This 85-nucleotide RNA sequence from Sphaerochaeta globosa belongs to the Rfam family "tRNA". The family's consensus secondary structure is taken from published work. From the family's description: Transfer RNA (tRNA) molecules are approximately 80 nucleotides in length. Gene Ontology term of the family: triplet codon-amino acid adaptor activity. Taxonomically the source falls in Sphaerochaeta globosa (Bacteria, Pseudomonadati, Spirochaetota, Sphaerochaeta). The family's RNA type in Rfam is transfer RNA.

[Rfam]
RNA sequence: GGAGAGGUGUCCGAGUGGUCGAUGGUGCACGCUUGGAAAGCGUGUGUGCUGAAAGGCACCGGGGGUUCGAAUCCCCCCUUCUCCG
Numbered sequence: 001g002g003a004g005a006g007g008u009g010u011c012c013g014a015g016u017g018g019u020c021g022a023u024g025g026u027g028c029a030c031g032c033u034u035g036g037a038a039a040g041c042g043u044g045u046g047u048g049c050u051g052a053a054a055g056g057c058a059c060c061g062g063g064g065g066u067u068c069g070a071a072u073c074c075c076c077c078c079u080u081c082u083c084c085g
Stems, first nucleotide, its partner, number of pairs: 001084007011025003028044005061077005